[Rfam]
The record is a 73-nucleotide RNA from Ladona fulva, which matches "mir-12 microRNA precursor family" in Rfam. The source organism's lineage runs through Eukaryota, Opisthokonta, Ecdysozoa, Pancrustacea and Ladona. The family's consensus secondary structure was predicted with RNAalifold. On this family, see Werren et al., Science 2010: "Functional and evolutionary insights from the genomes of three parasitoid Nasonia species".
RNA sequence: CAAGCAUGAGUAUUACAUCAGGUACUGGUGGGCAUGUUUAAUAAAGCCAGUGCUUGUGUUAUACUCGUUCUUU
Number, nucleotide and partner (000 for none) at each position: 001c000002a072003a071004g070005c000006a068007u000008g000009a065010g064011u063012a062013u000014u000015a059016c058017a057018u056019c000020a000021g054022g053023u052024a051025c050026u049027g048028g047029u046030g000031g000032g000033c000034a000035u000036g000037u000038u000039u000040a000041a000042u000043a000044a000045a000046g029047c028048c027049a026050g025051u024052g023053c022054u021055u000056g018057u017058g016059u015060u000061a000062u012063a011064c010065u009066c000067g000068u006069u000070c004071u003072u002073u000